Rfam assigns this 416-nucleotide RNA from Coemansia spiralis to the family "Nuclear RNase P". The match comes from Rfam's covariance-model search (50 bits). The source organism's lineage runs through Eukaryota, Kickxellomycotina, Kickxellomycetes, Kickxellaceae and Coemansia. Its family is annotated with ribonuclease P complex, tRNA processing and ribonuclease P activity in the Gene Ontology.

[Rfam]
RNA sequence: GACGUCGGGACCUGCGCUAGGCGAUACUUACAUUUCAAUGUACGCUUGGGUAAAGUCCGGGAAAAGUCAAGCAAGCCUCUAACUGAGGGUCCUGCUAAUAGCGGGGCGGGAUGUGACCAGAAAAAUAUACCCACUUGCGCGCUUGAAAACAAGGGAGGGAGAUUCGUCUCCUUUUUUUGUUUGGGGCUGUUGACGCUUUGCCUGCUUUCUUUCGGGAAAGUUGGGCAAAAAGCCGAAGCCCUUGUGCUCUCUCUUUUCGGAGCGAGGGGCCAAGCGUGCUUGUGGGGUUGAGAUCUUCCACUCCCUGGCGGUAAGACUUGGAUGCAGUGCGUUGCGCAGGGCACCGGUGCUGCUUGCUCCUUACGGGGAAGCUGGCUUGUUGUCGGUGACACUCAGUCCGGAUUAUCCCGCACGUC
Numbered sequence: 001g002a003c004g005u006c007g008g009g010a011c012c013u014g015c016g017c018u019a020g021g022c023g024a025u026a027c028u029u030a031c032a033u034u035u036c037a038a039u040g041u042a043c044g045c046u047u048g049g050g051u052a053a054a055g056u057c058c059g060g061g062a063a064a065a066g067u068c069a070a071g072c073a074a075g076c077c078u079c080u081a082a083c084u085g086a087g088g089g090u091c092c093u094g095c096u097a098a099u100a101g102c103g104g105g106g107c108g109g110g111a112u113g114u115g116a117c118c119a120g121a122a123a124a125a126u127a128u129a130c131c132c133a134c135u136u137g138c139g140c141g142c143u144u145g146a147a148a149a150c151a152a153g154g155g156a157g158g159g160a161g162a163u164u165c166g167u168c169u170c171c172u173u174u175u176u177u178u179g180u181u182u183g184g185g186g187c188u189g190u191u192g193a194c195g196c197u198u199u200g201c202c203u204g205c206u207u208u209c210u211u212u213c214g215g216g217a218a219a220g221u222u223g224g225g226c227a228a229a230a231a232g233c234c235g236a237a238g239c240c241c242u243u244g245u246g247c248u249c250u251c252u253c254u255u256u257u258c259g260g261a262g263c264g265a266g267g268g269g270c271c272a273a274g275c276g277u278g279c280u281u282g283u284g285g286g287g288u289u290g291a292g293a294u295c296u297u298c299c300a301c302u303c304c305c306u307g308g309c310g311g312u313a314a315g316a317c318u319u320g321g322a323u324g325c326a327g328u329g330c331g332u333u334g335c336g337c338a339g340g341g342c343a344c345c346g347g348u349g350c351u352g353c354u355u356g357c358u359c360c361u362u363a364c365g366g367g368g369a370a371g372c373u374g375g376c377u378u379g380u381u382g383u384c385g386g387u388g389a390c391a392c393u394c395a396g397u398c399c400g401g402a403u404u405a406u407c408c409c410g411c412a413c414g415u416c
Stems, first nucleotide, its partner, number of pairs: 001416004007409003012340002018334001019047005057401005066309004076088004090106006108305004113301003130286005342388008